[Rfam]
This 165-nucleotide RNA from Streptomyces sp. ISL-10 belongs to the Rfam family "c-di-AMP riboswitch aptamer (ydaO/yuaA leader)".
The match comes from Rfam's covariance-model search (78 bits).
This family represents a conserved RNA structure found upstream of the ydaO and yuaA genes in Bacillus subtilis and related genes in other bacteria.
The source organism's lineage runs through Bacteria, Bacillati, Actinomycetota, Actinomycetes and Streptomyces.
RNA sequence: GGGCCGACUCCGCCGAAUUCGGGCGUCCUGCAAGGACGUUCGGAACCGGGGACCCGAACUAUGCACAACCGGGGUGAAUCGGACCACUGUGUGAUGCGGUCCGUAGGGCAUCUUCCGUUCGCCCGAACCCGACAGCUAACCCGGUAGGCGGUCCACGGAAGAAGG
Numbered sequence: 001g002g003g004c005c006g007a008c009u010c011c012g013c014c015g016a017a018u019u020c021g022g023g024c025g026u027c028c029u030g031c032a033a034g035g036a037c038g039u040u041c042g043g044a045a046c047c048g049g050g051g052a053c054c055c056g057a058a059c060u061a062u063g064c065a066c067a068a069c070c071g072g073g074g075u076g077a078a079u080c081g082g083a084c085c086a087c088u089g090u091g092u093g094a095u096g097c098g099g100u101c102c103g104u105a106g107g108g109c110a111u112c113u114u115c116c117g118u119u120c121g122c123c124c125g126a127a128c129c130c131g132a133c134a135g136c137u138a139a140c141c142c143g144g145u146a147g148g149c150g151g152u153c154c155a156c157g158g159a160a161g162a163a164g165g
Stems, first nucleotide, its partner, number of pairs: 003149003009044003045145006055071002072130003080103006106124004